[Rfam]
Nucleotides: 325
Base pairs, nucleotide, nucleotide: 018164019163020162021161022160023159024158025157026093027092028091029090030089031088034085035084036083037080038079039078043073044072045071046070047069048068051065052064053063055061056060101156102155103154104153108140109139111136112135113134114133115132175243176242181240182239183238184237185236186235196228197227198226199225202224203223204222205221206220207219208217209216248318249317250316251313252312253311254310255309265301266300267299268298271296272295273294278288279287280286281285
Number, partner (000 for none) and nucleotide at each position: 001000u002000u003000u004000c005000u006000u007000c008000u009000u010000a011000c012000c013000a014000c015000a016000a017000c018164g019163g020162a021161u022160c023159u024158g025157u026093g027092u028091c029090c030089a031088g032000c033000a034085c035084u036083c037080c038079u039078g040000u041000u042000g043073a044072c045071g046070g047069g048068g049000u050000u051065g052064u053063c054000a055061g056060u057000c058000u059000g060056a061055c062000u063053g064052a065051c066000u067000u068048c069047u070046c071045u072044g073043u074000g075000u076000u077000u078039c079038g080037g081000u082000u083036g084035a085034g086000a087000g088031c089030u090029g091028g092027g093026c094000a095000g096000a097000u098000c099000g100000a101156c102155g103154a104153c105000c106000u107000u108140g109139g110000a111136g112135c113134c114133a115132u116000u117000c118000a119000u120000c121000u122000u123000u124000u125000u126000a127000c128000a129000u130000g131000u132115a133114u134113g135112g136111c137000a138000g139109c140108c141000u142000u143000a144000c145000g146000g147000c148000u149000u150000c151000c152000u153104g154103u155102c156101g157025a158024c159023a160022g161021a162020u163019c164018u165000c166000a167000g168000a169000u170000g171000a172000a173000a174000u175243g176242u177000u178000u179000g180000c181240a182239c183238c184237g185236g186235g187000a188000a189000u190000u191000c192000c193000u194000u195000g196228g197227g198226u199225c200000u201000u202224g203223a204222g205221c206220u207219c208217c209216c210000g211000u212000u213000u214000u215000a216209g217208g218000u219207g220206a221205g222204c223203u224202c225199g226198g227197c228196u229000u230000g231000a232000g233000g234000c235186c236185c237184u238183g239182g240181u241000c242176g243175u244000g245000a246000a247000c248318g249317g250316c251313g252312u253311c254310a255309u256000a257000u258000u259000c260000c261000a262000c263000c264000c265301c266300u267299c268298u269000u270000u271296a272295c273294c274000g275000a276000u277000c278288g279287g280286c281285c282000g283000u284000u285281g286280g287279c288278c289000u290000g291000u292000g293000a294273g295272g296271u297000u298268a299267g300266g301265g302000a303000u304000a305000a306000a307000c308000c309255a310254u311253g312252a313251c314000c315000u316250g317249c318248c319000a320000a321000c322000a323000u324000u325000c